[Rfam]
RNA sequence: GCGGAUGUAGCCAAGUGGAUUAAGGCAGUGGAUUGUGAAUUCACCAUCGCGGGUUCAAUUCCCGUCGUUCGCC
Numbered sequence: 001g002c003g004g005a006u007g008u009a010g011c012c013a014a015g016u017g018g019a020u021u022a023a024g025g026c027a028g029u030g031g032a033u034u035g036u037g038a039a040u041u042c043a044c045c046a047u048c049g050c051g052g053g054u055u056c057a058a059u060u061c062c063c064g065u066c067g068u069u070c071g072c073c
Stems, first nucleotide, its partner, number of pairs: 001072007010026003028044005049065005
The family of this 73-nucleotide RNA from Arabidopsis thaliana is "tRNA". Rfam classes the family as a transfer RNA.